[Rfam]
RNA sequence: AAGCGCCCAACGUGGGGCCUGGGCACGAGGGUCGAACGUGAGGAACAGACGCAAAGAAAGGCCGGCGAUAUAAGUGAGCAGAGCGUCCUUCAGUCGCCUAGGGAACCUGCCGCGUUGGAACCGAAGGUAAGUGAAAGCGUCUGAACAUGGGACAAGAAUUAAGUCAGCAUCAGCUUUACGUGAAACAAUUGAAGGAGGCUUUAAAGGCGCGAGGAGUAAAGGUUAAAAGUUAUGACUUGCUUAAAUUUUUUGAUUUCAUACAAGACACCUGUCCUU
Numbered sequence: 001a002a003g004c005g006c007c008c009a010a011c012g013u014g015g016g017g018c019c020u021g022g023g024c025a026c027g028a029g030g031g032u033c034g035a036a037c038g039u040g041a042g043g044a045a046c047a048g049a050c051g052c053a054a055a056g057a058a059a060g061g062c063c064g065g066c067g068a069u070a071u072a073a074g075u076g077a078g079c080a081g082a083g084c085g086u087c088c089u090u091c092a093g094u095c096g097c098c099u100a101g102g103g104a105a106c107c108u109g110c111c112g113c114g115u116u117g118g119a120a121c122c123g124a125a126g127g128u129a130a131g132u133g134a135a136a137g138c139g140u141c142u143g144a145a146c147a148u149g150g151g152a153c154a155a156g157a158a159u160u161a162a163g164u165c166a167g168c169a170u171c172a173g174c175u176u177u178a179c180g181u182g183a184a185a186c187a188a189u190u191g192a193a194g195g196a197g198g199c200u201u202u203a204a205a206g207g208c209g210c211g212a213g214g215a216g217u218a219a220a221g222g223u224u225a226a227a228a229g230u231u232a233u234g235a236c237u238u239g240c241u242u243a244a245a246u247u248u249u250u251u252g253a254u255u256u257c258a259u260a261c262a263a264g265a266c267a268c269c270u271g272u273c274c275u276u
Stems, first nucleotide, its partner, number of pairs: 006031003012026003037048001039047001086129001088127001089125002094120001095117001098114001101111002137153001140151004160203003163199003210252008220238006262275001264273003
Mason-Pfizer monkey virus packaging signal: a 276-nucleotide RNA sequence from Prolemur simus.
The match comes from Rfam's covariance-model search (192 bits).
Rfam classes the family as a cis-regulatory element.
Pairs were carried over by alignment from the consensus structure, which was predicted with PFOLD.